Rfam assigns this 55-nucleotide RNA to the family "Na+ riboswitch aptamer (DUF1646)".
Rfam's curators put it in the seed alignment.
For this family Rfam cites "Na(+) riboswitches regulate genes for diverse physiological processes in bacteria" (White et al., Nat Chem Biol, 2022).

[Rfam]
RNA sequence: GGUUGGGGGAAUUGAUUAUUCUCUUCAAGAGAUACGGCUUUUGGGGUGGAAAGCU
Numbered sequence: 001g002g003u004u005g006g007g008g009g010a011a012u013u014g015a016u017u018a019u020u021c022u023c024u025u026c027a028a029g030a031g032a033u034a035c036g037g038c039u040u041u042u043g044g045g046g047u048g049g050a051a052a053g054c055u
Stems, first nucleotide, its partner, number of pairs: 003028003006024006036055007